[Rfam]
RNA: small nucleolar RNA snoR114
RNA sequence: GAGCCAUGAUGACUCUUGCGCCUUUGUGAUGGUGGGGUCCAUCACAUCACCUGAUCCAACGGACGAGAAAUGGGCGCUUCUGAGUUC
Numbered sequence: 001g002a003g004c005c006a007u008g009a010u011g012a013c014u015c016u017u018g019c020g021c022c023u024u025u026g027u028g029a030u031g032g033u034g035g036g037g038u039c040c041a042u043c044a045c046a047u048c049a050c051c052u053g054a055u056c057c058a059a060c061g062g063a064c065g066a067g068a069a070a071u072g073g074g075c076g077c078u079u080c081u082g083a084g085u086u087c
Stems, first nucleotide, its partner, number of pairs: 001087004